[Rfam]
RNA: Salmonella enterica sRNA STnc40
Organism: Limnohabitans sp. 103DPR2
RNA sequence: GCGGUGCCAAGGUCGAUUGAGCUUUUGACACCUGAUAAAAAAAGGCGCUGAAUUCAGCGCCUUUUUU
Numbered sequence: 001g002c003g004g005u006g007c008c009a010a011g012g013u014c015g016a017u018u019g020a021g022c023u024u025u026u027g028a029c030a031c032c033u034g035a036u037a038a039a040a041a042a043a044g045g046c047g048c049u050g051a052a053u054u055c056a057g058c059g060c061c062u063u064u065u066u067u
Stems, first nucleotide, its partner, number of pairs: 002019003006013002040065011